mir-196 microRNA precursor family: a 76-nucleotide RNA sequence from Pelusios castaneus. Rfam 15.1 lists 1,813 matches to the family in 642 species. The source organism's lineage runs through Eukaryota, Opisthokonta, Tetrapoda, Testudines and Pelusios. A search with the family's covariance model found it, with a score of 75 bits. Rfam links the family to the GO terms gene silencing by miRNA and RISC complex.

RNA sequence: UUUGUGAAUUAGGUAGUUUCAUGUUGUUGGGCUUUUAUUUUUAAACACAAGAACAUAAAACUAUCUGAUUUACUCC
Numbered sequence: 001u002u003u004g005u006g007a008a009u010u011a012g013g014u015a016g017u018u019u020c021a022u023g024u025u026g027u028u029g030g031g032c033u034u035u036u037a038u039u040u041u042u043a044a045a046c047a048c049a050a051g052a053a054c055a056u057a058a059a060a061c062u063a064u065c066u067g068a069u070u071u072a073c074u075c076c
Base pairs, nucleotide, nucleotide: 004073005072006071007070008069009068010067011066012065013064014063015062016061017060018059019058022055023054024053025052027050028049029048031046